[Rfam]
RNA sequence: AAUCAAGAGAUUCAACGUAAAGCCCUGGCUCGUUGAACGGCAACCCUCUCCUCGGUAGUGGGGUGCUCCAGGUGACGAUUCGGCCCACCGGAAAACCGGUCGGGCAAGUACCGCAC
Numbered sequence: 001a002a003u004c005a006a007g008a009g010a011u012u013c014a015a016c017g018u019a020a021a022g023c024c025c026u027g028g029c030u031c032g033u034u035g036a037a038c039g040g041c042a043a044c045c046c047u048c049u050c051c052u053c054g055g056u057a058g059u060g061g062g063g064u065g066c067u068c069c070a071g072g073u074g075a076c077g078a079u080u081c082g083g084c085c086c087a088c089c090g091g092a093a094a095a096c097c098g099g100u101c102g103g104g105c106a107a108g109u110a111c112c113g114c115a116c
Stems, first nucleotide, its partner, number of pairs: 001080004009038001011037006021030002039067003044063003048058002083105004087100005